[Rfam]
RNA sequence: UGGUGAUGCCUACUUACCAUUAUCAAUGAAGGCACUCGGUCAUGCUGUGGGUUGUCAUAAACCUUAGACGCGUUUGUUGUCGGUAGUGUGGUGUGAGGAUGGGUUGAAUGCCCA
Dot-bracket structure: [[[[..(((((.(..]]]]........).)))))((((((((((((..(((((......)))))..((((.......))))...)))))))).))))..(((((.....)))))